[Rfam]
RNA sequence: UAACGUGGUGUGACCCUUGAAAAACCGAUCACCGGCUUGUCCCCCGCCGCAUCAGGUUUGGACAAAGGCCUUAUCCCCCUCUCCGGGCCUUUGUCCCCAUUUUAAGGUCGCCAUGGCCAACCUCCAGGCCAUGGCGACUUUUG
Numbered sequence: 001u002a003a004c005g006u007g008g009u010g011u012g013a014c015c016c017u018u019g020a021a022a023a024a025c026c027g028a029u030c031a032c033c034g035g036c037u038u039g040u041c042c043c044c045c046g047c048c049g050c051a052u053c054a055g056g057u058u059u060g061g062a063c064a065a066a067g068g069c070c071u072u073a074u075c076c077c078c079c080u081c082u083c084c085g086g087g088c089c090u091u092u093g094u095c096c097c098c099a100u101u102u103u104a105a106g107g108u109c110g111c112c113a114u115g116g117c118c119a120a121c122c123u124c125c126a127g128g129c130c131a132u133g134g135c136g137a138c139u140u141u142u143g
Stems, first nucleotide, its partner, number of pairs: 025055001027053003034048003060096011105139001108137011
Alphaproteobacterial sRNA ar7: a 143-nucleotide RNA sequence from Rhizobium etli. Rfam classes the family as a small RNA. For this family Rfam cites "A survey of sRNA families in alpha-proteobacteria" (del Val et al., RNA Biol, 2012).